[Rfam]
RNA sequence: AAAAAAAGGAGCAAUAACCUCUUUCUUGUUCUAUCAAGAGGGGGGUCUUGCUCCUUU
Numbered sequence: 001a002a003a004a005a006a007a008g009g010a011g012c013a014a015u016a017a018c019c020u021c022u023u024u025c026u027u028g029u030u031c032u033a034u035c036a037a038g039a040g041g042g043g044g045g046u047c048u049u050g051c052u053c054c055u056u057u
Stems, first nucleotide, its partner, number of pairs: 005057010016046001020043002023040006
RNA: Plastid-psbA-4 3UTR RNA